[Rfam]
RNA: T-box leader
RNA sequence: AAAAUAGCGUAGAUGAAAACUAAGAUUUAAAAGCAUGAAAGAGAGUUGGCGGUAGGUGCAAGCCAAUAUGCUUAAGAAUCGUUCCACUUUCGUAGCUGCUAACGAUGAGUUAGAAGGAUUGUACCCUUUAUCGUACUUCUUGAGAGGCUAAUGAAAUUAGCAAUUUGGGUGGUAUCGCGGAUUCUUUCGUCCCAUUA
Numbered sequence: 001a002a003a004a005u006a007g008c009g010u011a012g013a014u015g016a017a018a019a020c021u022a023a024g025a026u027u028u029a030a031a032a033g034c035a036u037g038a039a040a041g042a043g044a045g046u047u048g049g050c051g052g053u054a055g056g057u058g059c060a061a062g063c064c065a066a067u068a069u070g071c072u073u074a075a076g077a078a079u080c081g082u083u084c085c086a087c088u089u090u091c092g093u094a095g096c097u098g099c100u101a102a103c104g105a106u107g108a109g110u111u112a113g114a115a116g117g118a119u120u121g122u123a124c125c126c127u128u129u130a131u132c133g134u135a136c137u138u139c140u141u142g143a144g145a146g147g148c149u150a151a152u153g154a155a156a157u158u159a160g161c162a163a164u165u166u167g168g169g170u171g172g173u174a175u176c177g178c179g180g181a182u183u184c185u186u187u188c189g190u191c192c193c194a195u196u197a
Stems, first nucleotide, its partner, number of pairs: 007096002015091004024080005034070003045067006099113005115127003147161006166194004177190005